The record is a 281-nucleotide RNA from Hepatocystis sp. ex Piliocolobus tephrosceles, which matches "Protozoan signal recognition particle RNA" in Rfam. Its Rfam clan is "SRP clan". Rfam 15.1 lists 111 matches to the family in 100 species. Taxonomically the source falls in Hepatocystis (Eukaryota, Sar, Alveolata, Apicomplexa). On this family, see Batey et al., Science 2000: "Crystal structure of the ribonucleoprotein core of the signal recognition particle".

RNA sequence: UUAGCUGUAACAGUAGCAAUACUGGGACACGUUUGUAAGACGGUACCCUUAAGGGUAUUGGUCUCUAUAGGCGGUAAAAAAUGGGAUAUCUUUAAUGUGGGUAUAAUUCGAUUAUCAGUACUAUUCCCGUCUAUCACAAGAUGGCAGUUACUGAACAGGUCUUGUUGGAAAAAGGACAUGUUGAAGUAAUAAUGAACUACGUAUCGCCUCAGGCUGGGAACAGAGCAGGGUUAGUAGUCGCUGAUGUACGGUGUGAAAGAAUUACGGUUGAGUAAAAUGAU
Numbered sequence: 001u002u003a004g005c006u007g008u009a010a011c012a013g014u015a016g017c018a019a020u021a022c023u024g025g026g027a028c029a030c031g032u033u034u035g036u037a038a039g040a041c042g043g044u045a046c047c048c049u050u051a052a053g054g055g056u057a058u059u060g061g062u063c064u065c066u067a068u069a070g071g072c073g074g075u076a077a078a079a080a081a082u083g084g085g086a087u088a089u090c091u092u093u094a095a096u097g098u099g100g101g102u103a104u105a106a107u108u109c110g111a112u113u114a115u116c117a118g119u120a121c122u123a124u125u126c127c128c129g130u131c132u133a134u135c136a137c138a139a140g141a142u143g144g145c146a147g148u149u150a151c152u153g154a155a156c157a158g159g160u161c162u163u164g165u166u167g168g169a170a171a172a173a174g175g176a177c178a179u180g181u182u183g184a185a186g187u188a189a190u191a192a193u194g195a196a197c198u199a200c201g202u203a204u205c206g207c208c209u210c211a212g213g214c215u216g217g218g219a220a221c222a223g224a225g226c227a228g229g230g231u232u233a234g235u236a237g238u239c240g241c242u243g244a245u246g247u248a249c250g251g252u253g254u255g256a257a258a259g260a261a262u263u264a265c266g267g268u269u270g271a272g273u274a275a276a277a278u279g280a281u
Stems, first nucleotide, its partner, number of pairs: 011083002014080001111281005125271002127267004131259002134256005141247003145243004150187003154182004159177005165172002190194001196238005206231004214223003
Rfam links the family to the GO terms signal recognition particle, endoplasmic reticulum targeting and SRP-dependent cotranslational protein targeting to membrane, signal sequence recognition. The family's consensus secondary structure is taken from published work.